The family of this 600-nucleotide part of an RNA from Aquaticitalea lipolytica is "Bacterial small subunit ribosomal RNA". A search with the family's covariance model found it, with a score of 1527 bits. The base pairs follow the family's consensus structure, which is taken from published work. The source organism's lineage runs through Bacteria, Bacteroidota, Flavobacteriales, Flavobacteriaceae and Aquaticitalea.
RNA sequence: UGACGGGGGCCCGCACAAGCGGUGGAGCAUGUGGUUUAAUUCGAUGAUACGCGAGGAACCUUACCAGGGCUUAAAUGUAGAUUGACAGGUUUAGAGAUAGACUUUUCUUCGGACAAUUUACAAGGUGCUGCAUGGUUGUCGUCAGCUCGUGCCGUGAGGUGUCAGGUUAAGUCCUAUAACGAGCGCAACCCCUGUUGUUAGUUGCCAGCGAGUCAAGUCGGGAACUCUAACAAGACUGCCAGUGCAAACUGUGAGGAAGGUGGGGAUGACGUCAAAUCAUCACGGCCCUUACGUCCUGGGCUACACACGUGCUACAAUGGUAGGUACAGAGAGCAGCCACUGCGUGAGCAGGAGCGAAUCUAUAAAACCUAUCACAGUUCGGAUCGGAGUCUGCAACUCGACUCCGUGAAGCUGGAAUCGCUAGUAAUCGCAUAUCAGCCAUGAUGCGGUGAAUACGUUCCCGGGCCUUGUACACACCGCCCGUCAAGCCAUGGAAGCCGGGAGUGCCUGAAGUCCGUCACCGUAAGGAGCGGCCUAGGGUAAAAUUGGUAACUAGGGCUAAGUCGUAACAAGGUAGCCGUACCGGAAGGUGCGGCUGGA
Dot-bracket structure: (((((.(((((((.((..((((((.((((((((((....((((........))))........(((((((.....(((.(((((..(((((((....))))))).((....))))))).))).((.((((..((((((.((...(((((((((....)))...(((......)))...)))))).....((((.(((((((...((..(((......)))))....)))))))..((.(((((....)))).).)).....))))....)).).)))...))))))))....)))))))...)).)))))))).)...(((((((......((..((...(((....)))...))....)).....)))))))......(....(((((((........)))))))....).....))))).....(((((((..........)))))))......))...)))))))))).))..(.(..((...((((.(((..(((((...((((....(.((((..((....)).)))).)...))))...)))))..))).))))....))...)..).((((((((((....))))))))))..
Numbered sequence: 001u002g003a004c005g006g007g008g009g010c011c012c013g014c015a016c017a018a019g020c021g022g023u024g025g026a027g028c029a030u031g032u033g034g035u036u037u038a039a040u041u042c043g044a045u046g047a048u049a050c051g052c053g054a055g056g057a058a059c060c061u062u063a064c065c066a067g068g069g070c071u072u073a074a075a076u077g078u079a080g081a082u083u084g085a086c087a088g089g090u091u092u093a094g095a096g097a098u099a100g101a102c103u104u105u106u107c108u109u110c111g112g113a114c115a116a117u118u119u120a121c122a123a124g125g126u127g128c129u130g131c132a133u134g135g136u137u138g139u140c141g142u143c144a145g146c147u148c149g150u151g152c153c154g155u156g157a158g159g160u161g162u163c164a165g166g167u168u169a170a171g172u173c174c175u176a177u178a179a180c181g182a183g184c185g186c187a188a189c190c191c192c193u194g195u196u197g198u199u200a201g202u203u204g205c206c207a208g209c210g211a212g213u214c215a216a217g218u219c220g221g222g223a224a225c226u227c228u229a230a231c232a233a234g235a236c237u238g239c240c241a242g243u244g245c246a247a248a249c250u251g252u253g254a255g256g257a258a259g260g261u262g263g264g265g266a267u268g269a270c271g272u273c274a275a276a277u278c279a280u281c282a283c284g285g286c287c288c289u290u291a292c293g294u295c296c297u298g299g300g301c302u303a304c305a306c307a308c309g310u311g312c313u314a315c316a317a318u319g320g321u322a323g324g325u326a327c328a329g330a331g332a333g334c335a336g337c338c339a340c341u342g343c344g345u346g347a348g349c350a351g352g353a354g355c356g357a358a359u360c361u362a363u364a365a366a367a368c369c370u371a372u373c374a375c376a377g378u379u380c381g382g383a384u385c386g387g388a389g390u391c392u393g394c395a396a397c398u399c400g401a402c403u404c405c406g407u408g409a410a411g412c413u414g415g416a417a418u419c420g421c422u423a424g425u426a427a428u429c430g431c432a433u434a435u436c437a438g439c440c441a442u443g444a445u446g447c448g449g450u451g452a453a454u455a456c457g458u459u460c461c462c463g464g465g466c467c468u469u470g471u472a473c474a475c476a477c478c479g480c481c482c483g484u485c486a487a488g489c490c491a492u493g494g495a496a497g498c499c500g501g502g503a504g505u506g507c508c509u510g511a512a513g514u515c516c517g518u519c520a521c522c523g524u525a526a527g528g529a530g531c532g533g534c535c536u537a538g539g540g541u542a543a544a545a546u547u548g549g550u551a552a553c554u555a556g557g558g559c560u561a562a563g564u565c566g567u568a569a570c571a572a573g574g575u576a577g578c579c580g581u582a583c584c585g586g587a588a589g590g591u592g593c594g595g596c597u598g599g600a
Stems, first nucleotide, its partner, number of pairs: 001474002003471003007468007015458002019421005024315001026313008034304002040055004064299007076122003080118005087104007106113002124288002127286004133282002135277003138273001140271002145184006151160003164175003190265004195233007205222002209220003236256002239253001240251004319373007332361002336355002341350003380411001385406007427450007477573001479570001482566002487560004492555003497550005505542004513535001515533004521528002575598010